[Rfam]
RNA sequence: ACAGUACAGGAGCAAUAACCAAUUUCUUGUUCUAGCAACAGGAUUGGUAUUGCUCCUUU
Numbered sequence: 001a002c003a004g005u006a007c008a009g010g011a012g013c014a015a016u017a018a019c020c021a022a023u024u025u026c027u028u029g030u031u032c033u034a035g036c037a038a039c040a041g042g043a044u045u046g047g048u049a050u051u052g053c054u055c056c057u058u059u
Stems, first nucleotide, its partner, number of pairs: 006059001008057010021044001024041002027038003
RNA: Plastid-psbA-4 3UTR RNA